[Rfam]
RNA sequence: GCGCCUGUGGUGUAAUUGGUAGCCACGCCAGACUUAGGAUCUGGUGUCGAGAGACGUGUAGGUUCGAGUCCUAUCAGGCGCA
Numbered sequence: 001g002c003g004c005c006u007g008u009g010g011u012g013u014a015a016u017u018g019g020u021a022g023c024c025a026c027g028c029c030a031g032a033c034u035u036a037g038g039a040u041c042u043g044g045u046g047u048c049g050a051g052a053g054a055c056g057u058g059u060a061g062g063u064u065c066g067a068g069u070c071c072u073a074u075c076a077g078g079c080g081c082a
Stems, first nucleotide, its partner, number of pairs: 001081007010026003028044005058074005
RNA: tRNA